[Rfam]
RNA: dauA ncRNA motif
RNA sequence: GCGCCCGGGCCGGGAGCGCGCCCAGGGUGCCGGGACUCCGGCACCACCGCACCCGCUGCCGGAUGGUCUUCCGAACCGAGGCGCCAUG
Numbered sequence: 001g002c003g004c005c006c007g008g009g010c011c012g013g014g015a016g017c018g019c020g021c022c023c024a025g026g027g028u029g030c031c032g033g034g035a036c037u038c039c040g041g042c043a044c045c046a047c048c049g050c051a052c053c054c055g056c057u058g059c060c061g062g063a064u065g066g067u068c069u070u071c072c073g074a075a076c077c078g079a080g081g082c083g084c085c086a087u088g
Stems, first nucleotide, its partner, number of pairs: 001084005010062004015057004020052001025048002027044007064078003